[Rfam]
RNA sequence: UGUUUUCGCCCAUGGCGGGCGUUUCCUCCCUAUGACUGAGGCCUCGUCCGAUCGCGGACGAGGCCUUUUUUCGCGUCGG
Numbered sequence: 001u002g003u004u005u006u007c008g009c010c011c012a013u014g015g016c017g018g019g020c021g022u023u024u025c026c027u028c029c030c031u032a033u034g035a036c037u038g039a040g041g042c043c044u045c046g047u048c049c050g051a052u053c054g055c056g057g058a059c060g061a062g063g064c065c066u067u068u069u070u071u072c073g074c075g076u077c078g079g
Stems, first nucleotide, its partner, number of pairs: 008020004041064009